Rfam assigns this 162-nucleotide RNA from Beta vulgaris to the family "U1 spliceosomal RNA". The literature on the family includes a 1997 paper in Nucleic Acids Res by Zwieb, "The uRNA database". By type it is a spliceosomal small nuclear RNA. Rfam links the family to the GO terms mRNA 5'-splice site recognition, U1 snRNP and pre-mRNA 5'-splice site binding. The source organism's lineage runs through Eukaryota, Viridiplantae, Streptophyta, Euphyllophyta and Beta vulgaris.
[Rfam]
RNA sequence: AUACUUACCUGGACGGGGUCUAUGUGCGAUCAUAAAGGCUCAUGGCCUAGGUAGGUGGCCUCCAUUGCACUUGAGGAGGGGUGCCCACCUAACAUCUUCCCAAAGUGGAAGAGUGCACGUCAUAAUUUGUGUUAGUGGGGGUCUGCGUUCGCGCAACCCCUG
Dot-bracket structure: ...........(((((((((..((.((..........)).)).)))))(((...(((.(((((...........)).))).)))...)))..(((((.((......)).))).))..))))...............(((((..((((....)))).))))).